SAM (S-adenosyl methionine) riboswitch aptamer: a 116-nucleotide sequence from Glutamicibacter sp. BW77.
RNA sequence: GUUCAAGAGCCGUAGUCCUAAGUACCUGGCUGACUACGCGGCAACCCUCCUCCAUCAGUGGGGUGCCCCAGGGGAAGAACCGGUCCGCGGUGAACAUCCGAGGACAAGUUGAUGAA
Numbered sequence: 001g002u003u004c005a006a007g008a009g010c011c012g013u014a015g016u017c018c019u020a021a022g023u024a025c026c027u028g029g030c031u032g033a034c035u036a037c038g039c040g041g042c043a044a045c046c047c048u049c050c051u052c053c054a055u056c057a058g059u060g061g062g063g064u065g066c067c068c069c070a071g072g073g074g075a076a077g078a079a080c081c082g083g084u085c086c087g088c089g090g091u092g093a094a095c096a097u098c099c100g101a102g103g104a105c106a107a108g109u110u111g112a113u114g115a116a
Stems, first nucleotide, its partner, number of pairs: 001080004009039001011038006021031002040067003045063003049058001083105004088100003